[Rfam]
Rfam assigns this 146-nucleotide sequence from Dactylosporangium vinaceum to the family "c-di-AMP riboswitch aptamer (ydaO/yuaA leader)". It scores 78 bits against the family's covariance model. The source organism's lineage runs through Bacteria, Actinomycetota, Actinomycetes, Micromonosporales and Dactylosporangium.

RNA sequence: CCGAGUCGCGCGUCGAGCCUGGUGACGGGGUUGAUGCGGGAGCCGGGGAACCAGGUUCCCGGGGUGAAUCCGUGCACGCACGGUAGGGCGCACCUUCUUUCCGCCCGAACCCGUCAGCUAACCCGGUAGACGGUCUGGAAGAAGGA
Dot-bracket structure: .(.......................................((((((....(........)(((.....((((......))))..((((.............))))...))).........)))))).).................